[Rfam]
Rfam assigns this 88-nucleotide RNA from Austrofundulus limnaeus to the family "mir-135 microRNA precursor family".
The family has 88 seed sequences and 2,125 matches in Rfam 15.1.
Taxonomically the source falls in Austrofundulus (Eukaryota, Chordata, Craniata, Euteleostomi).
The literature on the family includes a 2002 paper in Curr Biol by Lagos-Quintana et al., "Identification of tissue-specific microRNAs from mouse".
RNA sequence: CCAUACGUGUGUCUUAUGGCUUUCUAUUCCUAUGUGAGUUCUUUCUGACAUGUCAUGUAGGGUUUAAAGCCAUUGGAUACACAGUGGG
Numbered sequence: 001c002c003a004u005a006c007g008u009g010u011g012u013c014u015u016a017u018g019g020c021u022u023u024c025u026a027u028u029c030c031u032a033u034g035u036g037a038g039u040u041c042u043u044u045c046u047g048a049c050a051u052g053u054c055a056u057g058u059a060g061g062g063u064u065u066a067a068a069g070c071c072a073u074u075g076g077a078u079a080c081a082c083a084g085u086g087g088g
Stems, first nucleotide, its partner, number of pairs: 002087001007082008016073008026064001028062010